[Rfam]
RNA sequence: AGAGGUAACAAUUUAGAGGCCAUAGCAGAAAUGCUCAUGGUGCAGCCUGUCAGAUUUCAACAAAUCUGUGAAUUCUGGU
Numbered sequence: 001a002g003a004g005g006u007a008a009c010a011a012u013u014u015a016g017a018g019g020c021c022a023u024a025g026c027a028g029a030a031a032u033g034c035u036c037a038u039g040g041u042g043c044a045g046c047c048u049g050u051c052a053g054a055u056u057u058c059a060a061c062a063a064a065u066c067u068g069u070g071a072a073u074u075c076u077g078g079u
Base pairs, nucleotide, nucleotide: 018047019046020045024079026077027076028075029074030073032042033041051068052067053066054065055064056063057062
RNA: Mammalian CPEB3 ribozyme
Organism: Crocodylus porosus